[Rfam]
RNA sequence: GUAAUUUUUUGGGGUAGAUCGUCAUCUAGUUAUGACAAAUCAACACUUGACUACUCAAAAUCACCUGUGAGAACUAUCAUGUGAACAAUAACUUUUAAGAUUUUA
Numbered sequence: 001g002u003a004a005u006u007u008u009u010u011g012g013g014g015u016a017g018a019u020c021g022u023c024a025u026c027u028a029g030u031u032a033u034g035a036c037a038a039a040u041c042a043a044c045a046c047u048u049g050a051c052u053a054c055u056c057a058a059a060a061u062c063a064c065c066u067g068u069g070a071g072a073a074c075u076a077u078c079a080u081g082u083g084a085a086c087a088a089u090a091a092c093u094u095u096u097a098a099g100a101u102u103u104u105a
Stems, first nucleotide, its partner, number of pairs: 004103001007100001008098002012094001014092002019087001023081003027076005
The record is a 105-nucleotide sequence from Populus tomentosa, which matches "MIR480 microRNA precursor family" in Rfam. Its family is annotated with RISC complex and miRNA-mediated post-transcriptional gene silencing in the Gene Ontology. A search with the family's covariance model found it, with a score of 63 bits. For this family Rfam cites "Novel and mechanical stress-responsive MicroRNAs in Populus trichocarpa that are absent from Arabidopsis" (Lu et al., Plant Cell, 2005).